[Rfam]
RNA: MIR7502 microRNA precursor family
RNA sequence: UGUUAAAAUAUCUCAUCAAUUUGUACCAUUAAAAAAUUAGAGACAACGACACAUGGCGUGACACGAAUACCUCAUGCUGACGUACAAAUAAAGAUUUUUAAUAGUAGAAAUGGAUAAAAUUUUUAACA
Numbered sequence: 001u002g003u004u005a006a007a008a009u010a011u012c013u014c015a016u017c018a019a020u021u022u023g024u025a026c027c028a029u030u031a032a033a034a035a036a037u038u039a040g041a042g043a044c045a046a047c048g049a050c051a052c053a054u055g056g057c058g059u060g061a062c063a064c065g066a067a068u069a070c071c072u073c074a075u076g077c078u079g080a081c082g083u084a085c086a087a088a089u090a091a092a093g094a095u096u097u098u099u100a101a102u103a104g105u106a107g108a109a110a111u112g113g114a115u116a117a118a119a120u121u122u123u124u125a126a127c128a
Stems, first nucleotide, its partner, number of pairs: 002127007010120002013117001015115003019111004024106003029101006